The record is a 117-nucleotide sequence from Paracoccus sp. SM22M-07, which matches "ALIL pseudoknot" in Rfam.
By type it is a cis-regulatory element.
The family has 26 seed sequences and 2,146 matches in Rfam 15.1.

[Rfam]
RNA sequence: UGCGUAUUUUGCGAUGGCGGAGCUCGACCGCCGGUCGAAGUGAUGGUCGGGUUCAUCGACGAACAUCGCGGUGAGCAUGGGGUCGAGCCGAUCUGCAAGGUUAUGCCGAUCGCCCCA
Numbered sequence: 001u002g003c004g005u006a007u008u009u010u011g012c013g014a015u016g017g018c019g020g021a022g023c024u025c026g027a028c029c030g031c032c033g034g035u036c037g038a039a040g041u042g043a044u045g046g047u048c049g050g051g052u053u054c055a056u057c058g059a060c061g062a063a064c065a066u067c068g069c070g071g072u073g074a075g076c077a078u079g080g081g082g083u084c085g086a087g088c089c090g091a092u093c094u095g096c097a098a099g100g101u102u103a104u105g106c107c108g109a110u111c112g113c114c115c116c117a
Base pairs, nucleotide, nucleotide: 016032017031018030019029020028078117079116080115081114082113089112090111092109093108095106096105097104